[Rfam]
RNA sequence: UGGCGGGGGAGCACCACAAGGGGUGGAACCUGCGGCUCAAUUGGAGUCAACGCCUGGAAUCUUACCGGGGGAGACCGCAGGAUGACGACCAGGCUAACGACCUUGUCAGACUCGCGGAGAGGAGGUGCAUGGCCGUCGCCAGCUCGUGUUGUGAAAUGUCCGGUUAAGUCCGGCAACGAGCGAGACCCCCACUGCUAGUUGCUAUUUCCUCCUCCGGGAGGGAAGCACACUAGCGGGACUGCCAGCGUUUAAGCUGGAGGAGGGAGGGGGCCACGGCAGGUCAGCAUGCCCCGAAACUCCCGGGCCGCACGCGGGUUACAAUGGCAGGGACAGCGGGAACCAAACCCGAGAGGGGGAGGUAAUCCCUUAAACCCUGCCUCAGUUGGGAUCGAGGGCUGGAACCCGCCCUCGUGAACGAGGAAUCCCUAGUAACCGCACGUCAACAACGUGCGGUGAAUACGUCCCUGCUCCUUGCACACACCGCCCGUCGCUCCACCCGAGCGAGAAGGUGAUGAGGCCUCCUGCGCAGAGUGGGAGGUCGAGUCAUCUUCUCGUGAGGGGGGAGAAGUCGUAACAAGG
Numbered sequence: 001u002g003g004c005g006g007g008g009g010a011g012c013a014c015c016a017c018a019a020g021g022g023g024u025g026g027a028a029c030c031u032g033c034g035g036c037u038c039a040a041u042u043g044g045a046g047u048c049a050a051c052g053c054c055u056g057g058a059a060u061c062u063u064a065c066c067g068g069g070g071g072a073g074a075c076c077g078c079a080g081g082a083u084g085a086c087g088a089c090c091a092g093g094c095u096a097a098c099g100a101c102c103u104u105g106u107c108a109g110a111c112u113c114g115c116g117g118a119g120a121g122g123a124g125g126u127g128c129a130u131g132g133c134c135g136u137c138g139c140c141a142g143c144u145c146g147u148g149u150u151g152u153g154a155a156a157u158g159u160c161c162g163g164u165u166a167a168g169u170c171c172g173g174c175a176a177c178g179a180g181c182g183a184g185a186c187c188c189c190c191a192c193u194g195c196u197a198g199u200u201g202c203u204a205u206u207u208c209c210u211c212c213u214c215c216g217g218g219a220g221g222g223a224a225g226c227a228c229a230c231u232a233g234c235g236g237g238a239c240u241g242c243c244a245g246c247g248u249u250u251a252a253g254c255u256g257g258a259g260g261a262g263g264g265a266g267g268g269g270g271c272c273a274c275g276g277c278a279g280g281u282c283a284g285c286a287u288g289c290c291c292c293g294a295a296a297c298u299c300c301c302g303g304g305c306c307g308c309a310c311g312c313g314g315g316u317u318a319c320a321a322u323g324g325c326a327g328g329g330a331c332a333g334c335g336g337g338a339a340c341c342a343a344a345c346c347c348g349a350g351a352g353g354g355g356g357a358g359g360u361a362a363u364c365c366c367u368u369a370a371a372c373c374c375u376g377c378c379u380c381a382g383u384u385g386g387g388a389u390c391g392a393g394g395g396c397u398g399g400a401a402c403c404c405g406c407c408c409u410c411g412u413g414a415a416c417g418a419g420g421a422a423u424c425c426c427u428a429g430u431a432a433c434c435g436c437a438c439g440u441c442a443a444c445a446a447c448g449u450g451c452g453g454u455g456a457a458u459a460c461g462u463c464c465c466u467g468c469u470c471c472u473u474g475c476a477c478a479c480a481c482c483g484c485c486c487g488u489c490g491c492u493c494c495a496c497c498c499g500a501g502c503g504a505g506a507a508g509g510u511g512a513u514g515a516g517g518c519c520u521c522c523u524g525c526g527c528a529g530a531g532u533g534g535g536a537g538g539u540c541g542a543g544u545c546a547u548c549u550u551c552u553c554g555u556g557a558g559g560g561g562g563g564a565g566a567a568g569u570c571g572u573a574a575c576a577a578g579g
Stems, first nucleotide, its partner, number of pairs: 001478002003475003007472007016462002020426005025319001027317008035308002041056001043054002065303007075117004079112002087107003091103003121292002124290004130286002132281003135277004142181006148157003160173004187269004192236007202225002206223007239260002242257005323378007335366003340359002345354003385416001390411007432454008481578001483575001486571002489568001491565004496560003501555013516540010
The record is a 579-nucleotide part of an RNA from Sulfolobales archaeon HS-7, which matches "Archaeal small subunit ribosomal RNA" in Rfam. Rfam 15.1 lists 709 matches to the family in 491 species. It scores 1485 bits against the family's covariance model. Lineage of the source: Archaea > Thermoproteati > Thermoproteota > Thermoprotei > Sulfolobales. Gene Ontology terms of the family: structural constituent of ribosome and ribosome.